Shown here is a 72-nucleotide RNA sequence, a member of the family "Hepatitis C virus stem-loop SL2531 and SL2549AU". The sequence is in the family's curated seed alignment. Rfam classes the family as a cis-regulatory element. The family's consensus secondary structure was predicted with RNAfold.
[Rfam]
RNA sequence: UCCUGGCGGACGCGCGCGUCUGUGCCUGCUUGUGGAUGAUGCUGCUGAUAGCUCAGGCUGAGGCCGCCCUAG
Numbered sequence: 001u002c003c004u005g006g007c008g009g010a011c012g013c014g015c016g017c018g019u020c021u022g023u024g025c026c027u028g029c030u031u032g033u034g035g036a037u038g039a040u041g042c043u044g045c046u047g048a049u050a051g052c053u054c055a056g057g058c059u060g061a062g063g064c065c066g067c068c069c070u071a072g
Base pairs, nucleotide, nucleotide: 006023007022008021009020010019011018012017024067025066028064029063030062031061034058037055038054